A member of the RNA family "Glycine riboswitch aptamer" from Embleya scabrispora, 97 nucleotides long.
RNA sequence: UACGUUCGCGCGGGAGAGUCCUCGUGUCGUCCGCACGAGGCGCCGAAGGAGCAACUCCUCCCCGGAAUCUCUCAGGCACCCGUACCGCGUGGUCGUG
Numbered sequence: 001u002a003c004g005u006u007c008g009c010g011c012g013g014g015a016g017a018g019u020c021c022u023c024g025u026g027u028c029g030u031c032c033g034c035a036c037g038a039g040g041c042g043c044c045g046a047a048g049g050a051g052c053a054a055c056u057c058c059u060c061c062c063c064g065g066a067a068u069c070u071c072u073c074a075g076g077c078a079c080c081c082g083u084a085c086c087g088c089g090u091g092g093u094c095g096u097g
Stems, first nucleotide, its partner, number of pairs: 006092008020040007042077003045073002049071003055065002

Background:
This family represents the bacterial glycine riboswitch. It scores 66 bits against the family's covariance model.